Description
The record is a 106-nucleotide RNA sequence from Pseudomonas sp. M30-35, which matches "Guanidine-I riboswitch aptamer" in Rfam. This family represents a conserved RNA structure found upstream of the ykkC and yxkD genes in Bacillus subtilis and related genes in other bacteria. Pairs were carried over by alignment from the consensus structure. The match comes from Rfam's covariance-model search (84 bits).
[Rfam]
Nucleotides: 106
Base pairs, nucleotide, nucleotide: 007063008062009061010060011059012058015053016052020050021049022047023044024043025042026041027040064079065078066077067076068075069074081101083104087099088098089097
Number, partner (000 for none) and nucleotide at each position: 001000c002000a003000a004000a005000u006000g007063g008062c009061u010060g011059a012058c013000u014000a015053g016052g017000g018000u019000u020050c021049c022047g023044g024043c025042u026041c027040a028000c029000c030000g031000a032000u033000a034000g035000u036000u037000c038000g039000a040027u041026g042025a043024g044023u045000g046000g047022c048000u049021g050020g051000u052016c053015c054000g055000a056000g057000a058012g059011u060010u061009g062008g063007c064079g065078a066077c067076c068075u069074c070000c071000a072000g073000u074069g075068a076067g077066g078065u079064u080000a081101c082000a083104c084000g085000g086000c087099g088098g089097g090000a091000u092000a093000a094000a095000a096000g097089c098088c099087c100000g101081g102000g103000a104083g105000a106000a